[Rfam]
RNA sequence: GUUCUUGUAGCGUAGUGGUUAGCGCGUCACUCUUACUAAGUGAAGAUCGGCGGUUCGAACCCGUCCAAGAACA
Numbered sequence: 001g002u003u004c005u006u007g008u009a010g011c012g013u014a015g016u017g018g019u020u021a022g023c024g025c026g027u028c029a030c031u032c033u034u035a036c037u038a039a040g041u042g043a044a045g046a047u048c049g050g051c052g053g054u055u056c057g058a059a060c061c062c063g064u065c066c067a068a069g070a071a072c073a
Stems, first nucleotide, its partner, number of pairs: 001072007010025004027043005049065005

Shown here is a 73-nucleotide RNA from Entomortierella chlamydospora, a member of the family "tRNA".
It is annotated as a transfer RNA.
Pairs were carried over by alignment from the consensus structure, which is taken from published work.
A search with the family's covariance model found it, with a score of 66 bits.
NCBI's taxonomy places the organism under Eukaryota, Fungi, Mortierellomycotina, Mortierellaceae, Entomortierella.